RNA sequence: CCGCAUACCAGUAGACCUCGUCUGGUUCUCACCGUAGCCAGACGAGGGGGACGGUCCAUGCGACACGAAGCCGGGGUUGCCGUAGGCUCCGAUCAGCCUCCGCGUGGCUGGUUGAACCGCGACGCUCCAACAUAC
Dot-bracket structure: ..((((.........(((((((((..............)))))))))..........))))...........((((.(..(((.........(((((.........))))).......)))..))))).......
Shown here is a 135-nucleotide RNA from Patagioenas fasciata, a member of the family "Small nucleolar RNA SNORA58".
The literature on the family includes a 2001 paper in EMBO J by Huttenhofer et al., "RNomics: an experimental approach that identifies 201 candidates for novel, small, non-messenger RNAs in mouse".
ACA52 is a member of the H/ACA class of snoRNA that guide the sites of modification of uridines to pseudouridines.
Pairs were carried over by alignment from the consensus structure, which was predicted with PFOLD.